[Rfam]
RNA sequence: AUCGAAUCCGGUGAUGGAGCUCACCGUAUAAAUGCCCAUUGAGGAUGAUGGCUCCUGUGCAUCU
Numbered sequence: 001a002u003c004g005a006a007u008c009c010g011g012u013g014a015u016g017g018a019g020c021u022c023a024c025c026g027u028a029u030a031a032a033u034g035c036c037c038a039u040u041g042a043g044g045a046u047g048a049u050g051g052c053u054c055c056u057g058u059g060c061a062u063c064u
Stems, first nucleotide, its partner, number of pairs: 010025004016055006035044002
RNA: Fluoride riboswitch aptamer (crcB RNA motif)
Organism: Paenalicyclobacillus macrosporangiidus